[Rfam]
RNA: U4 spliceosomal RNA
Organism: Leptonychotes weddellii
RNA sequence: AGCUUUGCACAGUGGCAGUAUCGUAGCCAAUGAGGUUUAUCCGAGGCGCGAUUAUUGCUAAUUAAAUGUUUCUUUCAUUAUGAAGCCUAUUUUGAGUAGCCUUUUUAAACUCAUGCUUCUUCAGCUGGUUUGAG
Numbered sequence: 001a002g003c004u005u006u007g008c009a010c011a012g013u014g015g016c017a018g019u020a021u022c023g024u025a026g027c028c029a030a031u032g033a034g035g036u037u038u039a040u041c042c043g044a045g046g047c048g049c050g051a052u053u054a055u056u057g058c059u060a061a062u063u064a065a066a067u068g069u070u071u072c073u074u075u076c077a078u079u080a081u082g083a084a085g086c087c088u089a090u091u092u093u094g095a096g097u098a099g100c101c102u103u104u105u106u107a108a109a110c111u112c113a114u115g116c117u118u119c120u121u122c123a124g125c126u127g128g129u130u131u132g133a134g
Stems, first nucleotide, its partner, number of pairs: 020052005026047003034042002079107002082104004087099005